[Rfam]
RNA sequence: CUCUUAUCAAGAGCGGUGGAGGGACUGGCCCUGUGAAGCCGCGGCAACCGGCAGCAAUGCGUCUGGUGCCAAAUCCAGCAGAAUCUUCGGAUUCUGGAAGAUGAGAG
Numbered sequence: 001c002u003c004u005u006a007u008c009a010a011g012a013g014c015g016g017u018g019g020a021g022g023g024a025c026u027g028g029c030c031c032u033g034u035g036a037a038g039c040c041g042c043g044g045c046a047a048c049c050g051g052c053a054g055c056a057a058u059g060c061g062u063c064u065g066g067u068g069c070c071a072a073a074u075c076c077a078g079c080a081g082a083a084u085c086u087u088c089g090g091a092u093u094c095u096g097g098a099a100g101a102u103g104a105g106a107g
Stems, first nucleotide, its partner, number of pairs: 001107008013042005021031003025078004043070004048066002050063003074099001079096006
Dot-bracket structure: ((((((((....(((((...(((.[[[[)))......)))))((((.(((((........))).))))))...(]]]]((((((......))))))..)))))))))
Source information: A member of the RNA family "SAM riboswitch aptamer (S box leader)" from Thermosinus carboxydivorans, 107 nucleotides long. It is one of the family's seed sequences. Pairs were carried over by alignment from the consensus structure, which is taken from published work. For this family Rfam cites "The S box regulon: a new global transcription termination control system for methionine and cysteine biosynthesis genes in gram-positive bacteria" (Grundy and Henkin, Mol Microbiol, 1998). Lineage of the source: Bacteria > Negativicutes > Selenomonadales > Thermosinus > Thermosinus carboxydivorans.